Record summary: The family of this 88-nucleotide RNA from Olea europaea is "Small nucleolar RNA U54". Rfam 15.1 lists 614 matches to the family in 206 species. U54 is a C/D box small nucleolar RNA, which acts as a methylation guide for 18S ribosomal RNA in plants.

RNA sequence: AGCUCUAUGAUUUCCUGCCUUAUUAUAAGGCGAUAUACGCUAUUCUGACAGGGAAUAUGAACAGAUAAUUGUUUCGAGUAUGAGAGCU
Numbered sequence: 001a002g003c004u005c006u007a008u009g010a011u012u013u014c015c016u017g018c019c020u021u022a023u024u025a026u027a028a029g030g031c032g033a034u035a036u037a038c039g040c041u042a043u044u045c046u047g048a049c050a051g052g053g054a055a056u057a058u059g060a061a062c063a064g065a066u067a068a069u070u071g072u073u074u075c076g077a078g079u080a081u082g083a084g085a086g087c088u
Base pairs, nucleotide, nucleotide: 001088002087003086004085005084
Background:
It is annotated as a C/D-box small nucleolar RNA. A reference for the family is Chen et al. (2003), "The high diversity of snoRNAs in plants: identification and comparative study of 120 snoRNA genes from Oryza sativa", Nucleic Acids Res. Its Rfam clan is "U54 clan". Taxonomically the source falls in Olea europaea (Eukaryota, Euphyllophyta, Gunneridae, Olea).